[Rfam]
RNA sequence: AUCUUGAAUGUGAGAGUUGGAUGAAAUCAAACCUUGAGCAACUUAACCUUACAUUUUCUAGGUUUAAACUGUUCAAGAAGCUUUGGUUUCCUCCAAUAUCUCACCUUCAAACA
Numbered sequence: 001a002u003c004u005u006g007a008a009u010g011u012g013a014g015a016g017u018u019g020g021a022u023g024a025a026a027u028c029a030a031a032c033c034u035u036g037a038g039c040a041a042c043u044u045a046a047c048c049u050u051a052c053a054u055u056u057u058c059u060a061g062g063u064u065u066a067a068a069c070u071g072u073u074c075a076a077g078a079a080g081c082u083u084u085g086g087u088u089u090c091c092u093c094c095a096a097u098a099u100c101u102c103a104c105c106u107u108c109a110a111a112c113a
Base pairs, nucleotide, nucleotide: 004110005109006108007107008106011103012102013101014100016097017096018095019094020093021092023090024089025088026087027086028085029084030083033080034079035078

This 113-nucleotide sequence from Kingdonia uniflora belongs to the Rfam family "MIR2275 microRNA precursor family". NCBI's taxonomy places the organism under Eukaryota, Streptophyta, Spermatophyta, Circaeasteraceae, Kingdonia. It scores 65 bits against the family's covariance model. Gene Ontology terms of the family: RISC complex and miRNA-mediated post-transcriptional gene silencing.